[Rfam]
RNA sequence: GUCAACCACCCCGGACUGAAGUCCGAGGCUUGUAAGCCUCUGGUUAACCAGCCUCAGCUUGGAAAGAGCUACGUUAGAAGGGUCAAGACACCCUGGGAUGCGUGCCCAAGUUCCAGGCUCCGUCGUCGGCGGUUAAACAGCUCUGAGGGGUAGGAGCAGUGCCGUCGAUGUAAAAAGCCUUUCUAACAUUGGCGAUGGGCAAUUUAC
Numbered sequence: 001g002u003c004a005a006c007c008a009c010c011c012c013g014g015a016c017u018g019a020a021g022u023c024c025g026a027g028g029c030u031u032g033u034a035a036g037c038c039u040c041u042g043g044u045u046a047a048c049c050a051g052c053c054u055c056a057g058c059u060u061g062g063a064a065a066g067a068g069c070u071a072c073g074u075u076a077g078a079a080g081g082g083u084c085a086a087g088a089c090a091c092c093c094u095g096g097g098a099u100g101c102g103u104g105c106c107c108a109a110g111u112u113c114c115a116g117g118c119u120c121c122g123u124c125g126u127c128g129g130c131g132g133u134u135a136a137a138c139a140g141c142u143c144u145g146a147g148g149g150g151u152a153g154g155a156g157c158a159g160u161g162c163c164g165u166c167g168a169u170g171u172a173a174a175a176a177g178c179c180u181u182u183c184u185a186a187c188a189u190u191g192g193c194g195a196u197g198g199g200c201a202a203u204u205u206a207c
Stems, first nucleotide, its partner, number of pairs: 001048002004045005010028002012025002015022002029036002051193003056070005073187011088123002092117008100203001103201006125169009137160002140157005146151001